[Rfam]
RNA: Small nucleolar RNA MBII-202
RNA sequence: UUUUAUAAUUCAUUAAGGAGUACUUGGCUGCUUUGAUGGAAGUACCUUUGAACCCUUUUCCAUCUGAAAACUGAUGACCAAAAAA
Numbered sequence: 001u002u003u004u005a006u007a008a009u010u011c012a013u014u015a016a017g018g019a020g021u022a023c024u025u026g027g028c029u030g031c032u033u034u035g036a037u038g039g040a041a042g043u044a045c046c047u048u049u050g051a052a053c054c055c056u057u058u059u060c061c062a063u064c065u066g067a068a069a070a071c072u073g074a075u076g077a078c079c080a081a082a083a084a085a
Stems, first nucleotide, its partner, number of pairs: 002085003006081001